[Rfam]
RNA sequence: UGGGACCCAACGGUGUGGCUUUGGAUACGGGGGAAUUCGUGAGGGAAGAGGCGUGUAAGUGUUCUGCCGAAGAAAAAAAAGUGAAAGUCAGUUCAAGAAAGUUCGCCAUGGGAGCCUGCCAUGCCGUUCUUAAAGGUACAGCAGCUCCUAUGUAUGGGACAAGAAUUAAGUAAGCAUAAAGUUUUUGUUAAGCAAUUAAAAGAAGCUUUAAAGACACGGGGAGUAAAGGUUAAGAGUAAUGAUCUUUUUAGGUUUUUUGACCUUAUUAAGAACACCUGUCCGU
Numbered sequence: 001u002g003g004g005a006c007c008c009a010a011c012g013g014u015g016u017g018g019c020u021u022u023g024g025a026u027a028c029g030g031g032g033g034a035a036u037u038c039g040u041g042a043g044g045g046a047a048g049a050g051g052c053g054u055g056u057a058a059g060u061g062u063u064c065u066g067c068c069g070a071a072g073a074a075a076a077a078a079a080a081g082u083g084a085a086a087g088u089c090a091g092u093u094c095a096a097g098a099a100a101g102u103u104c105g106c107c108a109u110g111g112g113a114g115c116c117u118g119c120c121a122u123g124c125c126g127u128u129c130u131u132a133a134a135g136g137u138a139c140a141g142c143a144g145c146u147c148c149u150a151u152g153u154a155u156g157g158g159a160c161a162a163g164a165a166u167u168a169a170g171u172a173a174g175c176a177u178a179a180a181g182u183u184u185u186u187g188u189u190a191a192g193c194a195a196u197u198a199a200a201a202g203a204a205g206c207u208u209u210a211a212a213g214a215c216a217c218g219g220g221g222a223g224u225a226a227a228g229g230u231u232a233a234g235a236g237u238a239a240u241g242a243u244c245u246u247u248u249u250a251g252g253u254u255u256u257u258u259g260a261c262c263u264u265a266u267u268a269a270g271a272a273c274a275c276c277u278g279u280c281c282g283u
Stems, first nucleotide, its partner, number of pairs: 006033003013028003038050001040048001088136002092133002104126001107123005144160001147158004167210003170206002217259008227245006268283001270281001272279002
Shown here is a 283-nucleotide RNA sequence from Sciurus vulgaris, a member of the family "Mason-Pfizer monkey virus packaging signal". The base pairs follow the family's consensus structure, which was predicted with PFOLD. Rfam links the family to the GO term viral genome packaging. Rfam's curators write: This family represents a group of sequences that are related to the Mason-Pfizer monkey virus (MPMV) packaging signal. The packaging signal is located in the 5' UTR and is required for specific RNA encapsidation. The match comes from Rfam's covariance-model search (164 bits).